The family of this 84-nucleotide sequence from Liparis tanakae is "mir-132 microRNA precursor family". The family has 50 seed sequences and 1,023 matches in Rfam 15.1. A reference for the family is Chen et al. (2005), "The developmental miRNA profiles of zebrafish as determined by small RNA cloning", Genes Dev. NCBI's taxonomy places the organism under Eukaryota, Eumetazoa, Actinopterygii, Teleostei, Liparis.
RNA sequence: GCCCCUAACGACCAUGGCUGUAGACUGUUACCGUGGUGCUGUUGCUAUAGAGUAACAAUCUAAAGCCACGGUCGCCAUGGAGAC
Numbered sequence: 001g002c003c004c005c006u007a008a009c010g011a012c013c014a015u016g017g018c019u020g021u022a023g024a025c026u027g028u029u030a031c032c033g034u035g036g037u038g039c040u041g042u043u044g045c046u047a048u049a050g051a052g053u054a055a056c057a058a059u060c061u062a063a064a065g066c067c068a069c070g071g072u073c074g075c076c077a078u079g080g081a082g083a084c
Stems, first nucleotide, its partner, number of pairs: 012071002015068004023060002026057006